This 95-nucleotide RNA from Corymbia citriodora belongs to the Rfam family "MIR535 microRNA precursor family". Gene Ontology terms of the family: miRNA-mediated post-transcriptional gene silencing and RISC complex. The source organism's lineage runs through Eukaryota, Tracheophyta, Magnoliopsida, Corymbia and Corymbia citriodora. The match comes from Rfam's covariance-model search (93 bits). On this family, see Zeng et al., Nucleic Acids Res 2010: "Conservation and divergence of microRNAs and their functions in Euphorbiaceous plants".

RNA sequence: ACCAUUACUUGACAACGAGAGAGAGCACGCUUGUCUGCGUUCAUGAUAGUGCCAUGACUGUGUACAUGCGUGCUCUCUACCGUUGUCAUACGAUG
Numbered sequence: 001a002c003c004a005u006u007a008c009u010u011g012a013c014a015a016c017g018a019g020a021g022a023g024a025g026c027a028c029g030c031u032u033g034u035c036u037g038c039g040u041u042c043a044u045g046a047u048a049g050u051g052c053c054a055u056g057a058c059u060g061u062g063u064a065c066a067u068g069c070g071u072g073c074u075c076u077c078u079a080c081c082g083u084u085g086u087c088a089u090a091c092g093a094u095g
Base pairs, nucleotide, nucleotide: 010088011087012086013085014084016082017081020078021077023075025073026072027071028070029069030068032066033065034064